[Rfam]
RNA: MIR390 microRNA precursor family
RNA sequence: GAGAAGAAUCUGUAAAGCUCAGGAGGGAUAGCGCCAUGAUGAUCUUAUUUCAUAUCGAUUUUUUGGCGCUAUCCAUCCUGAGUUUCAUUGGCUCUUCUU
Number, nucleotide and partner (000 for none) at each position: 001g000002a000003g000004a000005a000006g000007a000008a000009u000010c090011u000012g000013u000014a000015a000016a084017g083018c082019u081020c080021a079022g078023g077024a076025g000026g074027g073028a072029u071030a070031g069032c068033g067034c066035c065036a000037u000038g000039a000040u000041g000042a000043u000044c000045u000046u000047a000048u000049u000050u000051c000052a000053u000054a000055u000056c000057g000058a000059u000060u000061u000062u000063u000064u000065g035066g034067c033068g032069c031070u030071a029072u028073c027074c026075a000076u024077c023078c022079u021080g020081a019082g018083u017084u016085u000086c000087a000088u000089u000090g010091g000092c000093u000094c000095u000096u000097c000098u000099u000